[Rfam]
This 127-nucleotide RNA from Drosophila busckii belongs to the Rfam family "U5 spliceosomal RNA". Rfam's curators write: U5 RNA is a component of both types of known spliceosome. It scores 84 bits against the family's covariance model. Rfam 15.1 lists 28,527 matches to the family in 2,489 species. It is annotated as a spliceosomal small nuclear RNA.
RNA sequence: UUACUCUGGCUUCUCUUCAGUUUGUCGAAUAAAUCUUUCGCCUUUUACUAAAGAUUUCCGUGGAGAGGGGCACUCUAAUGAGUCUAACUUAUAUUUUUUGUGCGCCUAGCGGACAGUAAUGUCUGCU
Numbered sequence: 001u002u003a004c005u006c007u008g009g010c011u012u013c014u015c016u017u018c019a020g021u022u023u024g025u026c027g028a029a030u031a032a033a034u035c036u037u038u039c040g041c042c043u044u045u046u047a048c049u050a051a052a053g054a055u056u057u058c059c060g061u062g063g064a065g066a067g068g069g070g071c072a073c074u075c076u077a078a079u080g081a082g083u084c085u086a087a088c089u090u091a092u093a094u095u096u097u098u099u100g101u102g103c104g105c106c107u108a109g110c111g112g113a114c115a116g117u118a119a120u121g122u123c124u125g126c127u
Stems, first nucleotide, its partner, number of pairs: 003083004009071011031057008108127006
Gene Ontology terms of the family: spliceosomal tri-snRNP complex assembly and U5 snRNP.